This 69-nucleotide RNA from Mustela putorius belongs to the Rfam family "Small nucleolar RNA SNORD2".

RNA sequence: CAGUGAAAUGAUGGCAAUGAUCUUUCAAGACUGACCUGAAAUGAAGAGAAUACUCAUUGCUGAUCGUUU
Numbered sequence: 001c002a003g004u005g006a007a008a009u010g011a012u013g014g015c016a017a018u019g020a021u022c023u024u025u026c027a028a029g030a031c032u033g034a035c036c037u038g039a040a041a042u043g044a045a046g047a048g049a050a051u052a053c054u055c056a057u058u059g060c061u062g063a064u065c066g067u068u069u
Stems, first nucleotide, its partner, number of pairs: 002068005
About this RNA
The family has 17 seed sequences and 1,116 matches in Rfam 15.1.